[Rfam]
Rfam assigns this 330-nucleotide RNA sequence from Sporosarcina luteola to the family "Group I catalytic intron".
RNA sequence: CUUCGGUAAUGUUGUACGGGCGUCUUAACUGGUAACGGUUAAGAGCAUCACUGGGUGAAUUGCUGGAACCUCCUAAGAGCUCUUCUGCCACAGCGCAACUGGAAACGGUAAACGCGACGGCCUGAAAAACGAAGAGAUUGGACAAUCAGCAGCGAAGCCCCUGUCGGGAAACCGUGGGGAACGUUCAACGACUAGGAUAUACCGUCUAAGGUCAAAGACUACGACGAUGAAAUCUGUAGGCUGUUACGAAUCGUAACAUUCGAAGUGCCCAGCCCCUACAAGGAAACUUGAGGGUGAAGAUAUAGUCUAUUCCAUGAUCGAAAGACAUGG
Numbered sequence: 001c002u003u004c005g006g007u008a009a010u011g012u013u014g015u016a017c018g019g020g021c022g023u024c025u026u027a028a029c030u031g032g033u034a035a036c037g038g039u040u041a042a043g044a045g046c047a048u049c050a051c052u053g054g055g056u057g058a059a060u061u062g063c064u065g066g067a068a069c070c071u072c073c074u075a076a077g078a079g080c081u082c083u084u085c086u087g088c089c090a091c092a093g094c095g096c097a098a099c100u101g102g103a104a105a106c107g108g109u110a111a112a113c114g115c116g117a118c119g120g121c122c123u124g125a126a127a128a129a130c131g132a133a134g135a136g137a138u139u140g141g142a143c144a145a146u147c148a149g150c151a152g153c154g155a156a157g158c159c160c161c162u163g164u165c166g167g168g169a170a171a172c173c174g175u176g177g178g179g180a181a182c183g184u185u186c187a188a189c190g191a192c193u194a195g196g197a198u199a200u201a202c203c204g205u206c207u208a209a210g211g212u213c214a215a216a217g218a219c220u221a222c223g224a225c226g227a228u229g230a231a232a233u234c235u236g237u238a239g240g241c242u243g244u245u246a247c248g249a250a251u252c253g254u255a256a257c258a259u260u261c262g263a264a265g266u267g268c269c270c271a272g273c274c275c276c277u278a279c280a281a282g283g284a285a286a287c288u289u290g291a292g293g294g295u296g297a298a299g300a301u302a303u304a305g306u307c308u309a310u311u312c313c314a315u316g317a318u319c320g321a322a323a324g325a326c327a328u329g330g
Stems, first nucleotide, its partner, number of pairs: 002020003028039003051272004056267002061151006071142003075138001152184002158178003188308001190307005275294003279290004314328003318325002
Record summary: Lineage of the source: Bacteria > Bacillati > Bacilli > Caryophanales > Sporosarcina. Pairs were carried over by alignment from the consensus structure, which is taken from published work. It scores 80 bits against the family's covariance model. On this family, see Cech, Annu Rev Biochem 1990: "Self-splicing of group I introns".